[Rfam]
RNA sequence: UGCCACAAUGAUGAUGCUUAUUUGCUACUCUUGACCAAGAGAGUGAUGAGAACUUUUACCACCAUAACUUUCCUCUGAGGCA
Numbered sequence: 001u002g003c004c005a006c007a008a009u010g011a012u013g014a015u016g017c018u019u020a021u022u023u024g025c026u027a028c029u030c031u032u033g034a035c036c037a038a039g040a041g042a043g044u045g046a047u048g049a050g051a052a053c054u055u056u057u058a059c060c061a062c063c064a065u066a067a068c069u070u071u072c073c074u075c076u077g078a079g080g081c082a
Stems, first nucleotide, its partner, number of pairs: 001082004
About this RNA
This 82-nucleotide sequence from Rhinoptilus africanus belongs to the Rfam family "Small nucleolar RNA SNORD24". The match comes from Rfam's covariance-model search (41 bits). By type it is a C/D-box small nucleolar RNA. Its family is annotated with RNA processing and nucleolus in the Gene Ontology. The base pairs follow the family's consensus structure, which was predicted with PFOLD.